[Rfam]
RNA sequence: UUUCACAACGGAUCGUCCGGCACGUACCUGCCGGUGAAGGAGAUAAAA
Numbered sequence: 001u002u003u004c005a006c007a008a009c010g011g012a013u014c015g016u017c018c019g020g021c022a023c024g025u026a027c028c029u030g031c032c033g034g035u036g037a038a039g040g041a042g043a044u045a046a047a048a
Stems, first nucleotide, its partner, number of pairs: 001039005017034006
Background: The record is a 48-nucleotide RNA, which matches "msiK RNA" in Rfam. By type it is a cis-regulatory element. The family's consensus secondary structure is taken from published work. The sequence is in the family's curated seed alignment.